A member of the RNA family "Makes More Granules Regulator RNA (mmgR)" from Asticcacaulis sp. YBE204, 76 nucleotides long. Its Rfam clan is "suhB sRNA clan". The family's RNA type in Rfam is small RNA. The base pairs follow the family's consensus structure. The organism belongs to Asticcacaulis, within Bacteria.

RNA sequence: GUCGAUUGCCCUUCCUGGGCGUUUCCUCCCUGUAGACUUGGCCGCGCCGCAAUGCGCGGCUUUUUUUUUGCUCGGU
Numbered sequence: 001g002u003c004g005a006u007u008g009c010c011c012u013u014c015c016u017g018g019g020c021g022u023u024u025c026c027u028c029c030c031u032g033u034a035g036a037c038u039u040g041g042c043c044g045c046g047c048c049g050c051a052a053u054g055c056g057c058g059g060c061u062u063u064u065u066u067u068u069u070g071c072u073c074g075g076u
Stems, first nucleotide, its partner, number of pairs: 008020004040061008